[Rfam]
RNA sequence: AGCACUUUCUUAUAAGGUGCUGACAGAUGUAAGUCCGACGUGCCUUUCUUGGCACGGCCUCAAAACUUAGGCUUUGGGAUUAC
Dot-bracket structure: ((((((((.....)))))))).......((((..((...(((((......)))))((((..........))))...)).))))